A member of the RNA family "U4 spliceosomal RNA" from Muraenolepis orangiensis, 118 nucleotides long. NCBI's taxonomy places the organism under Eukaryota, Opisthokonta, Metazoa, Euteleosteomorpha, Muraenolepis. Rfam's curators write: U4 small nuclear RNA (U4 snRNA) is a component of the major U2-dependent spliceosome. A search with the family's covariance model found it, with a score of 87 bits.
[Rfam]
RNA sequence: AUCUUUGCGCAGCGGCAGUAUCGUAGCCUAUGAGGUUUAUCCGAGGCGCGAUUAUUGCUAGUUGAAAACUUUACCCAAUACCCCGCUAUGAUGACUUGAAAUAUAGUCAGUGUGCUGC
Dot-bracket structure: ...................(((((.(((.....((.....))..))))))))................................((.(((.(((((........))))).)))...))